The record is a 46-nucleotide RNA sequence from Herpetotheres cachinnans, which matches "Histone 3' UTR stem-loop" in Rfam.
The literature on the family includes a 1995 paper in Nucleic Acids Res by Williams and Marzluff, "The sequence of the stem and flanking sequences at the 3' end of histone mRNA are critical determinants for the binding of the stem-loop binding protein".
[Rfam]
RNA sequence: CCAAAGGCUCUUUUUAGAGCCACCCACAUUCUCAUAAAAGGAGCUG
Numbered sequence: 001c002c003a004a005a006g007g008c009u010c011u012u013u014u015u016a017g018a019g020c021c022a023c024c025c026a027c028a029u030u031c032u033c034a035u036a037a038a039a040g041g042a043g044c045u046g
Stems, first nucleotide, its partner, number of pairs: 006021006